[Rfam]
RNA sequence: UUCCCAUCCGGAGCGGCCGAGAGACCUGGCUCGUCGACGCCGCAGCAACCAGUGCCGUCCAUCCGCGGCACAAGGUGCUAAUGCCAGGACCGAUGGAGUGAUGUGAU
Numbered sequence: 001u002u003c004c005c006a007u008c009c010g011g012a013g014c015g016g017c018c019g020a021g022a023g024a025c026c027u028g029g030c031u032c033g034u035c036g037a038c039g040c041c042g043c044a045g046c047a048a049c050c051a052g053u054g055c056c057g058u059c060c061a062u063c064c065g066c067g068g069c070a071c072a073a074g075g076u077g078c079u080a081a082u083g084c085c086a087g088g089a090c091c092g093a094u095g096g097a098g099u100g101a102u103g104u105g106a107u
Base pairs, nucleotide, nucleotide: 002106003105005103006102007101008100013043014042015041016040017039021032022031023030026087027086028085029084044079045078046077047076049075050074052071053070054069055068056067057066083099
The family of this 107-nucleotide RNA sequence from Kocuria palustris is "SAM riboswitch aptamer (S box leader)".
The source organism's lineage runs through Bacteria, Bacillati, Actinomycetota, Micrococcales and Kocuria palustris.